[Rfam]
RNA: Hepatitis C virus (HCV) cis-acting replication element (CRE)
RNA sequence: CCAAUACCAGCUGCAUCCAUGCUCGACCUGUCGGGCUGGUUUAGGGCUGGUUACAGCGGGGGGGACAUAUAUCACAGCCUGUCCCGGGCCCGACCCCGCAUAUUACUCCUGUGCCUACUCCUACUGUCCGUAGGGGUAGGCAUUUUCCUGCUGCCUGCUCGGUGA
Numbered sequence: 001c002c003a004a005u006a007c008c009a010g011c012u013g014c015a016u017c018c019a020u021g022c023u024c025g026a027c028c029u030g031u032c033g034g035g036c037u038g039g040u041u042u043a044g045g046g047c048u049g050g051u052u053a054c055a056g057c058g059g060g061g062g063g064g065a066c067a068u069a070u071a072u073c074a075c076a077g078c079c080u081g082u083c084c085c086g087g088g089c090c091c092g093a094c095c096c097c098g099c100a101u102a103u104u105a106c107u108c109c110u111g112u113g114c115c116u117a118c119u120c121c122u123a124c125u126g127u128c129c130g131u132a133g134g135g136g137u138a139g140g141c142a143u144u145u146u147c148c149u150g151c152u153g154c155c156u157g158c159u160c161g162g163u164g165a
Base pairs, nucleotide, nucleotide: 006051007050008049009048010047011046012045018039021036022035023034024033025032026031056099057098058097059096060095061094062085063084064083065082066081067080112142113141114140115139116138117137118136119135120134121133122132123131124130
Dot-bracket structure: .....(((((((.....(..((((((....))))))..).....)))))))....((((((((((((............))))))........))))))............(((((((((((((.....))))))))))))).......................